[Rfam]
RNA sequence: AAGGGGCAUCAAGAGGGGUUCGUCCCCACCAACCGCCCACUCCGGGAACGGUGGUUAAUCGAUGCGCCAUAGGCCCUGCUGCGCAGGUAUGGAACAAAAAGGAGAUAU
Numbered sequence: 001a002a003g004g005g006g007c008a009u010c011a012a013g014a015g016g017g018g019u020u021c022g023u024c025c026c027c028a029c030c031a032a033c034c035g036c037c038c039a040c041u042c043c044g045g046g047a048a049c050g051g052u053g054g055u056u057a058a059u060c061g062a063u064g065c066g067c068c069a070u071a072g073g074c075c076c077u078g079c080u081g082c083g084c085a086g087g088u089a090u091g092g093a094a095c096a097a098a099a100a101g102g103a104g105a106u107a108u
Base pairs, nucleotide, nucleotide: 006065007064008063009062010061015027016026017025018024028055029054030053033051034050035049037046038045040104041103042102043101067092068091069090070089
The record is a 108-nucleotide sequence from Congregibacter litoralis, which matches "SAM-I/IV (S-adenosyl methionine) riboswitch aptamer" in Rfam. The organism belongs to Congregibacter litoralis, within Bacteria. Pairs were carried over by alignment from the consensus structure, which is taken from published work. Its family is annotated with S-adenosylmethionine metabolic process and regulation of gene expression in the Gene Ontology. For this family Rfam cites "Structural basis for diversity in the SAM clan of riboswitches" (Trausch et al., PNAS, 2014).